[Rfam]
RNA sequence: UUCAAUAAUAGAGGUGCAGUAUUUAAGAGUACAAUGGUGGAGUUAAGCAGCUGUGAAGCUAUUGGAAAGGAAAUAUUGCCGAAAUAUACAACUGAUUGCUUUAAGGUUGUAUGUUGGGUCUGUACAGAAUAUGUGCAGAACUGUCACAAAGUAUUACUUUGUGGAGAGCUAUUGUCUGA
Dot-bracket structure: .....((((((....(((((((((.......(((((((...................)))))))......)))))))))...(((((((((((...........)))))))))))((.((((((((.....)))))))).)).(((((((.......)))))))....)))))).....